[Rfam]
A member of the RNA family "Small nucleolar RNA SNORA57" from Danio rerio, 134 nucleotides long. U99 belongs to the H/ACA class of snoRNAs which are thought to guide the sites of modification of uridines to pseudouridines, the target for this family is unknown. The literature on the family includes a 2003 paper in Nucleic Acids Res by Vitali et al., "Identification of 13 novel human modification guide RNAs".
RNA sequence: UUUGACUUCAUAAGCAUGUGUCUGCUCAGUGCACAUGUAAGCAAGCAGCGGACAAGAGCAAAGCCAGUGCUAUGCCUUCGGUACUAGUGGCAUCCGAUUAUCUGCUAGUACUAUUCUCAAUCACUGGUACAUUA
Dot-bracket structure: ((((..........((((((.(........)))))))....))))...................(((((..............(((((((...........))))))).............)))))........